[Rfam]
The family of this 118-nucleotide sequence from Mytilus galloprovincialis is "U5 spliceosomal RNA". It scores 95 bits against the family's covariance model. For this family Rfam cites "The uRNA database" (Zwieb, Nucleic Acids Res, 1997).
RNA sequence: UUACUCUGGUUUCUCUUCAAACCACGAAUAUAUCUUUCGCCUUUUACUAAAGAUAUCCGUGGAGAGGAACAAUUAAUGAGUCUAUAGACAAUUUCUCUACACCCACUUUACGUGGGGU
Numbered sequence: 001u002u003a004c005u006c007u008g009g010u011u012u013c014u015c016u017u018c019a020a021a022c023c024a025c026g027a028a029u030a031u032a033u034c035u036u037u038c039g040c041c042u043u044u045u046a047c048u049a050a051a052g053a054u055a056u057c058c059g060u061g062g063a064g065a066g067g068a069a070c071a072a073u074u075a076a077u078g079a080g081u082c083u084a085u086a087g088a089c090a091a092u093u094u095c096u097c098u099a100c101a102c103c104c105a106c107u108u109u110a111c112g113u114g115g116g117g118u
Stems, first nucleotide, its partner, number of pairs: 003081004009070011030056008099118001102116005
From the family's description: U5 RNA is a component of both types of known spliceosome. The precise function of this molecule is unknown, though it is known that the 5' loop is required for splice site selection and p220 binding, and that both the 3' stem-loop and the Sm site are important for Sm protein binding and cap methylation. Taxonomically the source falls in Mytilus (Eukaryota, Bilateria, Spiralia, Mytiloidea). Gene Ontology terms of the family: spliceosomal tri-snRNP complex assembly and U5 snRNP.